[Rfam]
RNA sequence: GUGCCUUAAACUAAUGAGUAAGGAAAAUAUUGAGCCCUGGUAACGCUUGGCUCGGCUAUAAUAUAAUUAAUAGCUUUGAAUUUUUGAAGGGGUCGAGGUCGUCCUCUGGAGUGUCUGCCUACUUUAGCAGAUAUUCGAGUGAAGCGAUUUACCCC
Dot-bracket structure: ...(((((..........)))))........(((((..(......)..)))))(((((............))))).............(((((..(((((((...((.((((((((((........)))))))))).))....))))))))))))
Numbered sequence: 001g002u003g004c005c006u007u008a009a010a011c012u013a014a015u016g017a018g019u020a021a022g023g024a025a026a027a028u029a030u031u032g033a034g035c036c037c038u039g040g041u042a043a044c045g046c047u048u049g050g051c052u053c054g055g056c057u058a059u060a061a062u063a064u065a066a067u068u069a070a071u072a073g074c075u076u077u078g079a080a081u082u083u084u085u086g087a088a089g090g091g092g093u094c095g096a097g098g099u100c101g102u103c104c105u106c107u108g109g110a111g112u113g114u115c116u117g118c119c120u121a122c123u124u125u126a127g128c129a130g131a132u133a134u135u136c137g138a139g140u141g142a143a144g145c146g147a148u149u150u151a152c153c154c155c
Stems, first nucleotide, its partner, number of pairs: 004023005032053005039046001054075005089155005096150007106139002109136010